Overview:
Rfam assigns this 107-nucleotide sequence from Cacepaovirus simiae to the family "RAGATH-1 hammerhead ribozyme". A search with the family's covariance model found it, with a score of 60 bits. The source organism's lineage runs through Viruses, Heunggongvirae, Uroviricota, Cacepaovirus and Cacepaovirus simiae.

RNA sequence: GCGUCAUCCAGGAGACGUAAAAAUUCAUACUGAUGAGACUGGACGAAACACAGAGAGAAACUAUUAACUCAACUUACUAGUAGUUAAUAAUGGCUCUGUGUCUGUGA
Numbered sequence: 001g002c003g004u005c006a007u008c009c010a011g012g013a014g015a016c017g018u019a020a021a022a023a024u025u026c027a028u029a030c031u032g033a034u035g036a037g038a039c040u041g042g043a044c045g046a047a048a049c050a051c052a053g054a055g056a057g058a059a060a061c062u063a064u065u066a067a068c069u070c071a072a073c074u075u076a077c078u079a080g081u082a083g084u085u086a087a088u089a090a091u092g093g094c095u096c097u098g099u100g101u102c103u104g105u106g107a
Stems, first nucleotide, its partner, number of pairs: 002017004008042004025107005037044001048101008